[Rfam]
RNA sequence: UGCACAUCUGUAAACAUCCUCGACUGGAAGCCCGUGCUUUGACAAGUGCUUUUAGUCGGAUGUUUGCGUCUGUCUC
Numbered sequence: 001u002g003c004a005c006a007u008c009u010g011u012a013a014a015c016a017u018c019c020u021c022g023a024c025u026g027g028a029a030g031c032c033c034g035u036g037c038u039u040u041g042a043c044a045a046g047u048g049c050u051u052u053u054a055g056u057c058g059g060a061u062g063u064u065u066g067c068g069u070c071u072g073u074c075u076c
Stems, first nucleotide, its partner, number of pairs: 002075001004073003009068011023056009
Shown here is a 76-nucleotide RNA sequence from Petromyzon marinus, a member of the family "mir-30 microRNA precursor family". Lineage of the source: Eukaryota > Opisthokonta > Bilateria > Chordata > Petromyzon. This family consists of the mammalian microRNA (miRNA) precursor mir-30a. Animal miRNAs are transcribed as ~70nt precursors and subsequently processed by the Dicer enzyme to give a ~22nt product. In this case the mature sequence comes from both the 3' (miR-30) and 5' (mir-97-6) arms of the precursor. The extents of the hairpin precursors are not generally known and are estimated based on hairpin prediction. The products are thought to have regulatory roles through complementarity to mRNA. The involvement of Dicer in miRNA processing suggests a relationship with the phenomenon of RNA interference. miRNAs are numbered based on the sequence of the mature RNA. Rfam 15.1 lists 3,879 matches to the family in 647 species. The sequence is in the family's curated seed alignment. The literature on the family includes a 2001 paper in Science by Lagos-Quintana et al., "Identification of novel genes coding for small expressed RNAs".